Rfam assigns this 62-nucleotide RNA to the family "L31-Actinobacteria ribosomal protein leader". Clan: Ribosomal Protein L31 Leader clan. By type it is a cis-regulatory leader. Pairs were carried over by alignment from the consensus structure, which is taken from published work. For this family Rfam cites "Discovery of 20 novel ribosomal leader candidates in bacteria and archaea" (Eckert and Weinberg, BMC Microbiol, 2020).

[Rfam]
RNA sequence: GCGGUACCGGUUCACGCUCGCGCCCGCGCCCCCGGGGCGGAAGGCGCUGCGACCCGGCGACC
Numbered sequence: 001g002c003g004g005u006a007c008c009g010g011u012u013c014a015c016g017c018u019c020g021c022g023c024c025c026g027c028g029c030c031c032c033c034g035g036g037g038c039g040g041a042a043g044g045c046g047c048u049g050c051g052a053c054c055c056g057g058c059g060a061c062c
Stems, first nucleotide, its partner, number of pairs: 003062003007057004015051003020047004
Dot-bracket structure: ..(((.((((....(((..((((....................)))).)))..))))..)))